[Rfam]
About this RNA:
This 122-nucleotide RNA from Erinaceus europaeus belongs to the Rfam family "Small nucleolar RNA SNORA26". The family's consensus secondary structure was predicted with RNAalifold. From the family's description: The snoRNA HBI-6 belong to the H/ACA family of snoRNAs, guiding the pseudouridylation of position U4522 if the 28S rRNA. HBI-6 is the human orthologue of mouse MBI-6 snoRNA. By type it is an H/ACA-box small nucleolar RNA.

RNA sequence: GUGCUCUUUUAAGAUUGACUCAGCGCUUUAAGAGGCUAACACAGAAGGGAAAAGUAAGUCUCCAUAAAAGGCAAGGGAGAGACUGCAAAACUCUUCUUUGGAUCCUGUCUGCAGUCACAGUA
Numbered sequence: 001g002u003g004c005u006c007u008u009u010u011a012a013g014a015u016u017g018a019c020u021c022a023g024c025g026c027u028u029u030a031a032g033a034g035g036c037u038a039a040c041a042c043a044g045a046a047g048g049g050a051a052a053a054g055u056a057a058g059u060c061u062c063c064a065u066a067a068a069a070g071g072c073a074a075g076g077g078a079g080a081g082a083c084u085g086c087a088a089a090a091c092u093c094u095u096c097u098u099u100g101g102a103u104c105c106u107g108u109c110u111g112c113a114g115u116c117a118c119a120g121u122a
Stems, first nucleotide, its partner, number of pairs: 002051001004049007015039003019035001021032001058116001060114002063111002072100006079093003084089001
Dot-bracket structure: .(.(((((((....(((.(.(..........)..).)))...))))))).)......(.((.((.......((((((.(((..(....).))).)))))).........)).)).)......